Record summary: Shown here is a 182-nucleotide RNA from Gordonia malaquae, a member of the family "c-di-AMP riboswitch aptamer (ydaO/yuaA leader)". A search with the family's covariance model found it, with a score of 50 bits. From the family's description: This family represents a conserved RNA structure found upstream of the ydaO and yuaA genes in Bacillus subtilis and related genes in other bacteria. The ydaO/yuaA element is thought to act as a genetic 'off' switch for the ydaO and yuaA genes in its native state. It is believed that the element may be triggered during osmotic shock leading to activation of ydaO, a predicted amino acid transporter gene, and members of the yuaA-yubG operon which code for KtrA and KtrB K+ transporters.
[Rfam]
RNA sequence: AAACGAACACAGCAAUUCAGGAGCGAGGACGGGGGACCCACCAUCUCCCCGUGAGACCCGGCGGACGAGCAAUCGACCGCCUUGGGGUUAAGUCCGCGGCUAGGCACACGCCGAACCCGCCGGCCGGGCACCUCUCGCCCGAACCCGACAGCUCACCUCGUAGGCGCGUGGAGAGAGGAAAA
Numbered sequence: 001a002a003a004c005g006a007a008c009a010c011a012g013c014a015a016u017u018c019a020g021g022a023g024c025g026a027g028g029a030c031g032g033g034g035g036a037c038c039c040a041c042c043a044u045c046u047c048c049c050c051g052u053g054a055g056a057c058c059c060g061g062c063g064g065a066c067g068a069g070c071a072a073u074c075g076a077c078c079g080c081c082u083u084g085g086g087g088u089u090a091a092g093u094c095c096g097c098g099g100c101u102a103g104g105c106a107c108a109c110g111c112c113g114a115a116c117c118c119g120c121c122g123g124c125c126g127g128g129c130a131c132c133u134c135u136c137g138c139c140c141g142a143a144c145c146c147g148a149c150a151g152c153u154c155a156c157c158u159c160g161u162a163g164g165c166g167c168g169u170g171g172a173g174a175g176a177g178g179a180a181a182a
Stems, first nucleotide, its partner, number of pairs: 004027001029161006039084002085146003093123002096120004126140004
The organism belongs to Gordonia malaquae, within Bacteria.